This 77-nucleotide sequence from Drosophila grimshawi belongs to the Rfam family "mir-1000 microRNA precursor family".
RNA sequence: GCCAGUGAUAUUGUCCUGUCACAGCAGUAUUGUUAAUUAAGCAAUUGGUACUGCUGAGCCGGGGCAUUAACAUUGUU
Numbered sequence: 001g002c003c004a005g006u007g008a009u010a011u012u013g014u015c016c017u018g019u020c021a022c023a024g025c026a027g028u029a030u031u032g033u034u035a036a037u038u039a040a041g042c043a044a045u046u047g048g049u050a051c052u053g054c055u056g057a058g059c060c061g062g063g064g065c066a067u068u069a070a071c072a073u074u075g076u077u
Base pairs, nucleotide, nucleotide: 003075004074005073006072012066013065014064015063016062017061018060022056023055024054025053026052027051028050029049030048031047032046
Its family is annotated with negative regulation of glutamate secretion, neurotransmission, RISC complex and miRNA-mediated post-transcriptional gene silencing in the Gene Ontology. It scores 76 bits against the family's covariance model.